[Rfam]
RNA sequence: AUCGUUCAUCUCUGCUGUCAUUGCAUAGGCAAUGGUGGUAUAUCAGAGACGGAAGUAGGAAAUUUUUCUCCGAAGGAACGCGCC
Numbered sequence: 001a002u003c004g005u006u007c008a009u010c011u012c013u014g015c016u017g018u019c020a021u022u023g024c025a026u027a028g029g030c031a032a033u034g035g036u037g038g039u040a041u042a043u044c045a046g047a048g049a050c051g052g053a054a055g056u057a058g059g060a061a062a063u064u065u066u067u068c069u070c071c072g073a074a075g076g077a078a079c080g081c082g083c084c
Base pairs, nucleotide, nucleotide: 003080004079005078006077007076009049010048011047012046013045052081058071059070060069